Overview: This 350-nucleotide RNA sequence from Alteromonas sp. 5E99-2 belongs to the Rfam family "Bacterial RNase P class A". The base pairs follow the family's consensus structure, which is taken from published work.
Nucleotides: 350
Base pairs, nucleotide, nucleotide: 001346002345003344004343005342006341007340008339009338010337012315013314014313015312016311017310018309020039021038023036024035025034026033027032044333045332046331048330049329050328051327052326053219054218055217056216060252061251062250063249065215066214067213068212069211070084071083072082073081074080085099086097087096088095089094100210101209105208106207107204108203122149123148124145125144126143130141131140132139133138157175158174159173160172161171162170176199177197178196179195180194181193182191183190184189223272224271225270226269233263234262235261236260237259238258243257244256245255246254247253279298280297281296282295283294284293285292286291
Number, partner (000 for none) and nucleotide at each position: 001346u002345g003344a004343g005342u006341c007340a008339g009338c010337c011000a012315g013314g014313c015312a016311a017310u018309c019000g020039c021038u022000g023036c024035c025034a026033c027032a028000u029000u030000u031000a032027u033026g034025u035024g036023g037000g038021g039020g040000a041000g042000g043000a044333a045332a046331g047000u048330c049329c050328g051327g052326g053219c054218u055217c056216c057000a058000u059000c060252g061251g062250g063249c064000a065215g066214g067213g068212u069211g070084c071083c072082a073081g074080a075000u076000a077000a078000c079000u080074u081073c082072u083071g084070g085099g086097c087096g088095g089094c090000g091000c092000g093000a094089g095088c096087c097086g098000a099085c100210g101209a102000c103000a104000a105208g106207u107204g108203c109000a110000g111000c112000a113000g114000a115000g116000a117000g118000u119000a120000u121000a122149c123148c124145g125144c126143c127000u128000a129000a130141g131140u132139a133138c134000g135000c136000a137000a138133g139132u140131a141130c142000c143126g144125g145124u146000a147000a148123g149122g150000g151000u152000g153000a154000a155000a156000g157175g158174g159173u160172g161171c162170g163000g164000u165000a166000a167000g168000a169000g170162c171161g172160c173159a174158c175157c176199g177197c178196a179195c180194a181193g182191c183190u184189g185000g186000u187000a188000a189184c190183a191182g192000u193181u194180u195179g196178u197177g198000g199176c200000a201000a202000g203108g204107u205000a206000a207106a208105c209101u210100c211069c212068a213067c214066c215065c216056g217055g218054a219053g220000c221000a222000a223272g224271a225270c226269c227000a228000a229000a230000u231000a232000g233263g234262c235261u236260u237259c238258c239000a240000u241000a242000a243257c244256g245255u246254a247253u248000g249063g250062c251061c252060c253247a254246u255245a256244u257243g258238g259237g260236a261235a262234g263233c264000g265000g266000g267000u268000a269226g270225g271224u272223u273000g274000c275000u276000u277000g278000a279298g280297u281296c282295a283294a284293u285292u286291a287000g288000c289000a290000a291286u292285g293284a294283u295282u296281g297280a298279c299000c300000u301000a302000g303000a304000g305000g306000a307000a308000u309018g310017a311016u312015u313014g314013u315012c316000c317000a318000a319000g320000a321000c322000a323000g324000a325000a326052c327051c328050c329049g330048g331046c332045u333044u334000a335000c336000c337010g338009g339008c340007u341006g342005a343004c344003u345002c346001a347000a348000c349000u350000u